[Rfam]
RNA sequence: AUGGAUAACGGUGAUGGAGGCCGCCGAGACGUUUUGACGUCUGAACCGCCGCUUUGUAGGCUAAUGGCUCCUGGUCGGAU
Numbered sequence: 001a002u003g004g005a006u007a008a009c010g011g012u013g014a015u016g017g018a019g020g021c022c023g024c025c026g027a028g029a030c031g032u033u034u035u036g037a038c039g040u041c042u043g044a045a046c047c048g049c050c051g052c053u054u055u056g057u058a059g060g061c062u063a064a065u066g067g068c069u070c071c072u073g074g075u076c077g078g079a080u
Stems, first nucleotide, its partner, number of pairs: 010025004016071004021066001048061003
Fluoride riboswitch aptamer (crcB RNA motif): an 80-nucleotide RNA sequence from Chthonomonas calidirosea. Taxonomically the source falls in Chthonomonas calidirosea (Bacteria, Armatimonadota, Chthonomonadia, Chthonomonadales).